Nucleotides: 085
Stems, first nucleotide, its partner, number of pairs: 004082001006080001008078004013060003022054006029047001038072002041067004
Number, partner (000 for none) and nucleotide at each position: 001000a002000c003000g004082c005000a006080c007000a008078c009077g010076g011075g012000a013060a014059g015058c016000a017000u018000u019000g020000a021000c022054g023053c024052g025051c026050g027049g028000c029047u030000c031000a032000c033000a034000c035000a036000c037000u038072g039071g040000c041067c042066g043065c044064c045000g046000g047029g048000a049027c050026c051025g052024c053023g054022c055000c056000g057000a058015g059014c060013u061000a062000c063000u064044g065043g066042c067041g068000a069000g070000a071039c072038c073000g074000a075011c076010c077009c078008g079000c080006g081000g082004g083000g084000a085000c
Rfam assigns this 85-nucleotide RNA sequence to the family "c-di-GMP-II-GAG riboswitch aptamer". The base pairs follow the family's consensus structure, which is taken from published work.